[Rfam]
RNA: Mammalian CPEB3 ribozyme
Organism: Alligator sinensis
RNA sequence: AGAGAUUGAGGCCAUAGCAGAAGCACUCAUAGUGCGGCCCUGUCAGAUUCCAACAAAUCUGCAAAUUCUGCU
Numbered sequence: 001a002g003a004g005a006u007u008g009a010g011g012c013c014a015u016a017g018c019a020g021a022a023g024c025a026c027u028c029a030u031a032g033u034g035c036g037g038c039c040c041u042g043u044c045a046g047a048u049u050c051c052a053a054c055a056a057a058u059c060u061g062c063a064a065a066u067u068c069u070g071c072u
Stems, first nucleotide, its partner, number of pairs: 008040001010039004016072007023035003044061006